[Rfam]
RNA sequence: GUUAUUCGAGGUGGAAAAUUUCGUCCCCGUCCACACGCCGAUAGCUUGACAAAGGGAAACCUUGAGAAAUGCAGGAGAGUUGUACGCCUGCCGAAUAAC
Numbered sequence: 001g002u003u004a005u006u007c008g009a010g011g012u013g014g015a016a017a018a019u020u021u022c023g024u025c026c027c028c029g030u031c032c033a034c035a036c037g038c039c040g041a042u043a044g045c046u047u048g049a050c051a052a053a054g055g056g057a058a059a060c061c062u063u064g065a066g067a068a069a070u071g072c073a074g075g076a077g078a079g080u081u082g083u084a085c086g087c088c089u090g091c092c093g094a095a096u097a098a099c
Base pairs, nucleotide, nucleotide: 001099002098003097004096005095006094007093008092011034012033013032014031015030023085024084026082036066038055039054071091072090073089074088075087
This 99-nucleotide RNA sequence belongs to the Rfam family "skipping-rope RNA".
The family's consensus secondary structure is taken from published work.